[Rfam]
Shown here is a 116-nucleotide RNA from Brachypodium distachyon, a member of the family "MIR5070 microRNA precursor family". Rfam links the family to the GO terms miRNA-mediated post-transcriptional gene silencing and RISC complex. The organism belongs to Brachypodium, within Eukaryota. The family's consensus secondary structure was predicted with RNAalifold.

RNA sequence: CGGGGUACCCUUUGACCCUCCUUAGUUCAACCAAAUGAAUUAAAAUUUUAAAAUGAUGCAACUUUUUGAAAAACUAGUUCAUUUAUUUAAACUAAGCAGGGUCAAAGGAUGCCCAG
Numbered sequence: 001c002g003g004g005g006u007a008c009c010c011u012u013u014g015a016c017c018c019u020c021c022u023u024a025g026u027u028c029a030a031c032c033a034a035a036u037g038a039a040u041u042a043a044a045a046u047u048u049u050a051a052a053a054u055g056a057u058g059c060a061a062c063u064u065u066u067u068g069a070a071a072a073a074c075u076a077g078u079u080c081a082u083u084u085a086u087u088u089a090a091a092c093u094a095a096g097c098a099g100g101g102u103c104a105a106a107g108g109a110u111g112c113c114c115a116g
Base pairs, nucleotide, nucleotide: 003114004113005112006111007110009108010107011106012105013104014103015102016101017100018099019098021096022095023094024093025092026091027090029088030087033084034083035082036081037080038079039078040077041076042075